[Rfam]
RNA sequence: UAACCGCUGUCGCGAGACAGCGCUGAACAUACAGAAGUCAGCAGAGGUCGUAGUAGUUGAACGAUUUUUUUUCAGUGAAGGGC
Numbered sequence: 001u002a003a004c005c006g007c008u009g010u011c012g013c014g015a016g017a018c019a020g021c022g023c024u025g026a027a028c029a030u031a032c033a034g035a036a037g038u039c040a041g042c043a044g045a046g047g048u049c050g051u052a053g054u055a056g057u058u059g060a061a062c063g064a065u066u067u068u069u070u071u072u073c074a075g076u077g078a079a080g081g082g083c
Base pairs, nucleotide, nucleotide: 001025002024005022006021007020008019009018010017011016038045039044047083048082049081056076057075058074059073060072061071

Annotation: The record is an 83-nucleotide RNA from Lachnoclostridium sp. An14, which matches "Group II catalytic intron D1-D4-1" in Rfam. Taxonomically the source falls in Lachnoclostridium (Bacteria, Bacillota, Lachnospirales, Lachnospiraceae). Group II introns are found in rRNA, tRNA and mRNA of organelles in fungi, plants and protists, and also in mRNA in bacteria. A search with the family's covariance model found it, with a score of 73 bits.